[Rfam]
RNA sequence: GACGCUAAACGCCGUGUGGAAUAGACGUUACGGACCCGGGGGCGGUACCCGGCGCCUCCACCAGACUUCUUUCCGGUCAUCGCGACCGGAAUCCCUGGGGGCGAAACAGGAUCGACGUGCGCAGUAAAGGCAUGGUUUGCGUUCGGCAUGAUACCACCGUUAUCGGGUCAACCCUAACAAGUGCCAACGACAACGUUGAACUUGCCGCUGCGGCUUAA
Number, nucleotide and partner (000 for none) at each position: 001g143002a142003c141004g140005c139006u000007a000008a000009a000010c000011g000012c000013c000014g133015u132016g131017u130018g000019g000020a000021a000022u000023a000024g000025a000026c121027g120028u119029u000030a118031c117032g116033g000034a000035c000036c052037c051038g050039g049040g048041g000042g000043c000044g000045g000046u000047a000048c040049c039050c038051g037052g036053c103054g102055c101056c100057u099058c098059c097060a000061c000062c000063a000064g000065a000066c000067u000068u000069c000070u000071u000072u000073c000074c000075g000076g000077u000078c000079a000080u000081c000082g000083c000084g000085a000086c000087c000088g000089g000090a000091a000092u000093c000094c000095c000096u000097g059098g058099g057100g056101g055102c054103g053104a000105a000106a000107c000108a000109g000110g000111a000112u000113c000114g000115a000116c032117g031118u030119g028120c027121g026122c000123a000124g000125u000126a000127a000128a000129g000130g017131c016132a015133u014134g000135g000136u000137u000138u000139g005140c004141g003142u002143u001144c159145g158146g157147c000148a000149u000150g000151a000152u000153a000154c000155c000156a000157c146158c145159g144160u000161u000162a000163u000164c000165g000166g000167g000168u000169c000170a000171a000172c000173c000174c000175u000176a000177a000178c000179a000180a000181g000182u000183g000184c000185c000186a000187a000188c000189g000190a000191c000192a000193a000194c000195g000196u000197u000198g000199a000200a000201c000202u000203u000204g000205c000206c000207g000208c000209u000210g000211c000212g000213g000214c000215u000216u000217a000218a000

Shown here is a 218-nucleotide sequence from Paramagnetospirillum marisnigri, a member of the family "permuted transfer-messenger RNA".
The source organism's lineage runs through Bacteria, Pseudomonadati, Alphaproteobacteria, Magnetospirillaceae and Paramagnetospirillum.
On this family, see Mao et al., RNA Biol 2010: "Variations on the tmRNA gene".
Bacterial tmRNA, also known as 10Sa RNA or SsrA, is named for its dual tRNA and mRNA-like properties. Its role is to liberate the mRNA from a stalled ribosome. To accomplish this part of the tmRNA is used as a reading frame that ends in a translation stop signal. The broken mRNA is replaced in the ribosome by the tmRNA and translation of the tmRNA leads to addition of a proteolysis tag to the incomplete protein enabling recognition by a protease. Recently a number of permuted tmRNA genes have been found encoded in two parts. tmRNAs have been identified in eubacteria and some chloroplasts but are absent from archaeal and eukaryote nuclear genomes.
Rfam links the family to the GO term RNA catabolic process.